The record is a 247-nucleotide part of an RNA from Aquimarina spongiae, which matches "Bacterial large subunit ribosomal RNA" in Rfam. The family is grouped with related families in Rfam's "LSU clan". Pairs were carried over by alignment from the consensus structure, which is taken from published work.
[Rfam]
RNA sequence: UAGAAAUUUGAGUGGAUCUGACUUUAGUACGAGAGGACCGAGUUGGACGAACCGCUGGUGUAUCUGUUGUCUCGCCAGGGGCAUUGCAGAGUAGCUACGUUCGGAAGGGAUAAGCGCUGAAAGCAUAUAAGCGCGAAACCCACCACAAGAUGAGAUUUCUUUAAAGGGUCGUGGGAGACUACCACGUUGAUAGGCUAUAGGUGUAAAGGCAGUAAUGUCAUAGCCGAGUAGUACUAAUAACCCGUAG
Numbered sequence: 001u002a003g004a005a006a007u008u009u010g011a012g013u014g015g016a017u018c019u020g021a022c023u024u025u026a027g028u029a030c031g032a033g034a035g036g037a038c039c040g041a042g043u044u045g046g047a048c049g050a051a052c053c054g055c056u057g058g059u060g061u062a063u064c065u066g067u068u069g070u071c072u073c074g075c076c077a078g079g080g081g082c083a084u085u086g087c088a089g090a091g092u093a094g095c096u097a098c099g100u101u102c103g104g105a106a107g108g109g110a111u112a113a114g115c116g117c118u119g120a121a122a123g124c125a126u127a128u129a130a131g132c133g134c135g136a137a138a139c140c141c142a143c144c145a146c147a148a149g150a151u152g153a154g155a156u157u158u159c160u161u162u163a164a165a166g167g168g169u170c171g172u173g174g175g176a177g178a179c180u181a182c183c184a185c186g187u188u189g190a191u192a193g194g195c196u197a198u199a200g201g202u203g204u205a206a207a208g209g210c211a212g213u214a215a216u217g218u219c220a221u222a223g224c225c226g227a228g229u230a231g232u233a234c235u236a237a238u239a240a241c242c243c244g245u246a247g
Stems, first nucleotide, its partner, number of pairs: 002160008012146004018046007048103005056097003063090005068083006107141003114134005163245001166243004170186005191236003194232005200225002204220001208219004